[Rfam]
RNA: SAM riboswitch aptamer (S box leader)
RNA sequence: UGACCAUCAAGAGAGACGGAGGGAAUGGCCCUGUGAUGUCUCAGCAACCUACUAUUUUGUGUGGUGCUAAUUCCAGUUAGAUGGGGA
Numbered sequence: 001u002g003a004c005c006a007u008c009a010a011g012a013g014a015g016a017c018g019g020a021g022g023g024a025a026u027g028g029c030c031c032u033g034u035g036a037u038g039u040c041u042c043a044g045c046a047a048c049c050u051a052c053u054a055u056u057u058u059g060u061g062u063g064g065u066g067c068u069a070a071u072u073c074c075a076g077u078u079a080g081a082u083g084g085g086g087a
Stems, first nucleotide, its partner, number of pairs: 001087001004084005013042005021031003026075003043068004048064002050061003072079001
Dot-bracket structure: (..(((((....(((((...(((..[[[)))......)))))((((.(((((......))).))))))...(]]]...))))))..)